[Rfam]
RNA sequence: AGGAGGAACAACCCCAGUGGCGGGGCCAGCUCCGGAGCCUUGGAUUCAGCCCCUGCCGGAACUCCGGAGCUCUCAGCCUGCAGGGCCUGAAGGCUCCGGGUGCGG
Numbered sequence: 001a002g003g004a005g006g007a008a009c010a011a012c013c014c015c016a017g018u019g020g021c022g023g024g025g026c027c028a029g030c031u032c033c034g035g036a037g038c039c040u041u042g043g044a045u046u047c048a049g050c051c052c053c054u055g056c057c058g059g060a061a062c063u064c065c066g067g068a069g070c071u072c073u074c075a076g077c078c079u080g081c082a083g084g085g086c087c088u089g090a091a092g093g094c095u096c097c098g099g100g101u102g103c104g105g
Stems, first nucleotide, its partner, number of pairs: 002097004009089002012085003019078003023074003028071009039059002042056001
Rfam assigns this 105-nucleotide sequence from Canis lupus to the family "mir-8834 microRNA precursor family". Pairs were carried over by alignment from the consensus structure, which was predicted with RNAalifold. The family has 2 seed sequences and 13,926 matches in Rfam 15.1. Its family is annotated with miRNA-mediated post-transcriptional gene silencing and RISC complex in the Gene Ontology. The source organism's lineage runs through Eukaryota, Teleostomi, Sarcopterygii, Theria and Canis lupus.